[Rfam]
This 135-nucleotide RNA belongs to the Rfam family "ALIL pseudoknot". A reference for the family is Mazauric et al. (2008), "Apical loop-internal loop RNA pseudoknots: a new type of stimulator of -1 translational frameshifting in bacteria", J Biol Chem. The match comes from Rfam's covariance-model search (50 bits). The family's consensus secondary structure is taken from published work. It is annotated as a cis-regulatory element.
RNA sequence: GGCGAGUUUCUUCGGGGCGGAGCUCGGCCGCCAGCAUCGCAGGUAGUCGUGUUCAUCGACGCCCACCGCCACGACGUGGUCGAGGGCAAGCCACUCGGGGUCGAGCCCAUCUGCCGGGUCCUGCAGGUGGCCCCG
Dot-bracket structure: ...............(((((.......)))))...............................................................(((((......((.(((((.(....).))))).)))))))
Numbered sequence: 001g002g003c004g005a006g007u008u009u010c011u012u013c014g015g016g017g018c019g020g021a022g023c024u025c026g027g028c029c030g031c032c033a034g035c036a037u038c039g040c041a042g043g044u045a046g047u048c049g050u051g052u053u054c055a056u057c058g059a060c061g062c063c064c065a066c067c068g069c070c071a072c073g074a075c076g077u078g079g080u081c082g083a084g085g086g087c088a089a090g091c092c093a094c095u096c097g098g099g100g101u102c103g104a105g106c107c108c109a110u111c112u113g114c115c116g117g118g119u120c121c122u123g124c125a126g127g128u129g130g131c132c133c134c135g
Stems, first nucleotide, its partner, number of pairs: 016032005096135005107130002110127005116121001